Shown here is a 112-nucleotide RNA from Elysia chlorotica, a member of the family "tRNA". Rfam's curators write: Transfer RNA (tRNA) molecules are approximately 80 nucleotides in length.

Nucleotides: 112
Base pairs, nucleotide, nucleotide: 001111002110003109004108005107006106007105010026011025013023028082029081030080031079032078088104089103090102091101092100
Number, partner (000 for none) and nucleotide at each position: 001111g002110c003109u004108c005107c006106a007105g008000u009000g010026g011025c012000a013023c014000a015000a016000u017000c018000g019000g020000u021000u022000a023013g024000c025011g026010c027000g028082c029081c030080g031079u032078a033000c034000u035000u036000a037000u038000a039000g040000a041000c042000a043000g044000u045000a046000c047000c048000u049000u050000c051000c052000c053000a054000g055000u056000g057000g058000g059000a060000u061000g062000a063000u064000c065000a066000c067000g068000g069000g070000a071000u072000g073000a074000g075000u076000u077000a078032u079031g080030c081029g082028g083000a084000g085000g086000u087000u088104g089103a090102g091101a092100g093000u094000u095000c096000g097000a098000g099000c100092c101091u102090c103089u104088c105007c106006u107005g108004g109003a110002g111001c112000a